[Rfam]
RNA sequence: AGGUGAUGUCUCCUAAUCUUUAACAAUGGAGGCACUCGAUCCUGCUGUGGGCAUGACCAAUGCCUUAGAUGCUCGUCAUCAAUAGUGGGAUGUGAGGACGGGUUUGAUGCCCA
Numbered sequence: 001a002g003g004u005g006a007u008g009u010c011u012c013c014u015a016a017u018c019u020u021u022a023a024c025a026a027u028g029g030a031g032g033c034a035c036u037c038g039a040u041c042c043u044g045c046u047g048u049g050g051g052c053a054u055g056a057c058c059a060a061u062g063c064c065u066u067a068g069a070u071g072c073u074c075g076u077c078a079u080c081a082a083u084a085g086u087g088g089g090a091u092g093u094g095a096g097g098a099c100g101g102g103u104u105u106g107a108u109g110c111c112c113a
Stems, first nucleotide, its partner, number of pairs: 001019004007034007035096004039091008049065003053061002068080004100112004
Notes: Shown here is a 113-nucleotide RNA from Bacillus pumilus, a member of the family "epsC RNA". Taxonomically the source falls in Bacillus pumilus (Bacteria, Bacillati, Bacilli, Bacillus). The base pairs follow the family's consensus structure, which is taken from published work.